[Rfam]
RNA sequence: GUUGUCGUAUUCACCUCAAUCCACAUGUGUUGAUGUGGAUUGGAGUAAAAUUUAGUUCAAGUUACACUCCAACUCACCCCAACACAUGUGGAUUGAUGUGAAUCCGACU
Number, nucleotide and partner (000 for none) at each position: 001g000002u000003u000004g108005u107006c106007g105008u000009a103010u102011u101012c100013a099014c098015c000016u096017c095018a094019a093020u092021c091022c090023a089024c088025a087026u086027g085028u084029g083030u082031u081032g080033a000034u000035g077036u076037g075038g074039a000040u072041u071042g070043g069044a000045g067046u066047a000048a000049a000050a000051u000052u000053u000054a000055g000056u000057u000058c000059a000060a000061g000062u000063u000064a000065c000066a046067c045068u000069c043070c042071a041072a040073c000074u038075c037076a036077c035078c000079c000080c032081a031082a030083c029084a028085c027086a026087u025088g024089u023090g022091g021092a020093u019094u018095g017096a016097u000098g014099u013100g012101a011102a010103u009104c000105c007106g006107a005108c004109u000
RNA: MIR5565 microRNA precursor family